[Rfam]
RNA sequence: GUGACAUGAUGAUUCAGUUUAUCCAUUCGCUGAGUACGCUGUACUGACCUCCUUCCAAACCUCAGUUCCUGUUCUAGGAACUUGGGACUAUGUAGCCUCCAAAUGCCCUGCAGCCUGCAGUGUUCUAUUGUGGACUGCUUGUGUGUUGGUAGACUACUGGUAGGAAUGGUUGGUGUCAGCAGGGAUGGGUUCUACUGGGUCCCAUCUCACCAAGAUGAGUGGUGAAAUCUGAUCAC
Number, nucleotide and partner (000 for none) at each position: 001g000002u000003g000004a000005c000006a000007u000008g000009a000010u235011g234012a233013u232014u231015c000016a000017g228018u227019u226020u225021a000022u000023c222024c221025a220026u219027u218028c217029g216030c214031u213032g000033a000034g210035u209036a000037c000038g180039c179040u178041g177042u175043a174044c173045u172046g171047a170048c169049c168050u166051c000052c164053u163054u162055c160056c159057a000058a089059a000060c000061c086062u085063c084064a083065g081066u080067u079068c078069c077070u076071g000072u000073u000074c000075u000076a070077g069078g068079a067080a066081c065082u000083u064084g063085g062086g061087a000088c000089u058090a000091u000092g157093u156094a155095g154096c000097c152098u151099c000100c000101a000102a000103a000104u000105g144106c143107c141108c000109u000110g138111c137112a136113g135114c000115c133116u132117g131118c130119a129120g128121u127122g126123u000124u000125c000126u122127a121128u120129u119130g118131u117132g116133g115134a000135c113136u112137g111138c110139u000140u000141g107142u000143g106144u105145g000146u000147u000148g000149g000150u000151a098152g097153a000154c095155u094156a093157c092158u000159g056160g055161u000162a054163g053164g052165a000166a050167u000168g049169g048170u047171u046172g045173g044174u043175g042176u000177c041178a040179g039180c038181a000182g208183g207184g206185a205186u204187g203188g202189g201190u000191u199192c198193u000194a000195c000196u000197g000198g192199g191200u000201c189202c188203c187204a186205u185206c184207u183208c182209a035210c034211c000212a000213a031214g030215a000216u029217g028218a027219g026220u025221g024222g023223u000224g000225a020226a019227a018228u017229c000230u000231g014232a013233u012234c011235a010236c000
RNA: Small nucleolar RNA SNORD17
Organism: Castor canadensis